[Rfam]
Shown here is a 117-nucleotide RNA sequence from Ceratopteris richardii, a member of the family "U5 spliceosomal RNA".

RNA sequence: AAAGUGUGGCUGGAAGAGCGAAAUAUUCUUUCGCCUUUUACUAAAGAAUACCGUGUGCUCGGCCCACUGAAGCACCAUAGCCUAAAUUUUUGGCAGGGGUUUCCCUCCGGAAUCCCC
Numbered sequence: 001a002a003a004g005u006g007u008g009g010c011u012g013g014a015a016g017a018g019c020g021a022a023a024u025a026u027u028c029u030u031u032c033g034c035c036u037u038u039u040a041c042u043a044a045a046g047a048a049u050a051c052c053g054u055g056u057g058c059u060c061g062g063c064c065c066a067c068u069g070a071a072g073c074a075c076c077a078u079a080g081c082c083u084a085a086a087u088u089u090u091u092g093g094c095a096g097g098g099g100u101u102u103c104c105c106u107c108c109g110g111a112a113u114c115c116c117c
Base pairs, nucleotide, nucleotide: 004075005074006073008064009063010062011061012060013059015054024050025049026048027047028046029045030044031043096117097116098115099114101112
Dot-bracket structure: ...(((.((((((.(........((((((((...........))))))))...)....))))))........)))....................((((.(..........).))))

U5 RNA is a component of both types of known spliceosome. The precise function of this molecule is unknown, though it is known that the 5' loop is required for splice site selection and p220 binding, and that both the 3' stem-loop and the Sm site are important for Sm protein binding and cap methylation. Gene Ontology terms of the family: U5 snRNP and spliceosomal tri-snRNP complex assembly. Rfam classes the family as a spliceosomal small nuclear RNA. The match comes from Rfam's covariance-model search (57 bits).